[Rfam]
RNA sequence: UACAGAGUAGGUAUCCACGCGUUAGCCUUUGGGCUUUCAGUGCCGGUUAUACAGGGAGUUGAUAAUCGGACGAAGUACUUUUUGUCGCGGUGUGGAUACCGCAUCCCGCUGUU
Numbered sequence: 001u002a003c004a005g006a007g008u009a010g011g012u013a014u015c016c017a018c019g020c021g022u023u024a025g026c027c028u029u030u031g032g033g034c035u036u037u038c039a040g041u042g043c044c045g046g047u048u049a050u051a052c053a054g055g056g057a058g059u060u061g062a063u064a065a066u067c068g069g070a071c072g073a074a075g076u077a078c079u080u081u082u083u084g085u086c087g088c089g090g091u092g093u094g095g096a097u098a099c100c101g102c103a104u105c106c107c108g109c110u111g112u113u
Stems, first nucleotide, its partner, number of pairs: 002112004010100010020089003040071002043069008054106003058102001075086001077085002
RNA: THF (Tetrahydrofolate) riboswitch aptamer